The record is a 90-nucleotide sequence from Pan troglodytes, which matches "mir-548 microRNA precursor family" in Rfam. The literature on the family includes a 2010 paper in Blood by Jima et al., "Deep sequencing of the small RNA transcriptome of normal and malignant human B cells identifies hundreds of novel microRNAs". Taxonomically the source falls in Pan (Eukaryota, Deuterostomia, Tetrapoda, Amniota). Rfam 15.1 lists 3,009 matches to the family in 27 species.
RNA sequence: UAUUAGGUUGGUGCAAAAGCAAUUGUGGUUUUUGCCAUUAAAAUUAAAAGAAAUGGCAAAAACCACAAUUGCUUUUGCACCAAUCUAAUA
Number, nucleotide and partner (000 for none) at each position: 001u090002a089003u088004u087005a086006g085007g084008u083009u082010g081011g080012u079013g078014c077015a076016a075017a074018a073019g072020c071021a070022a069023u068024u067025g066026u065027g064028g063029u062030u061031u060032u059033u058034g057035c056036c055037a054038u053039u052040a000041a000042a000043a000044u000045u000046a000047a000048a000049a000050g000051a000052a039053a038054u037055g036056g035057c034058a033059a032060a031061a030062a029063c028064c027065a026066c025067a024068a023069u022070u021071g020072c019073u018074u017075u016076u015077g014078c013079a012080c011081c010082a009083a008084u007085c006086u005087a004088a003089u002090a001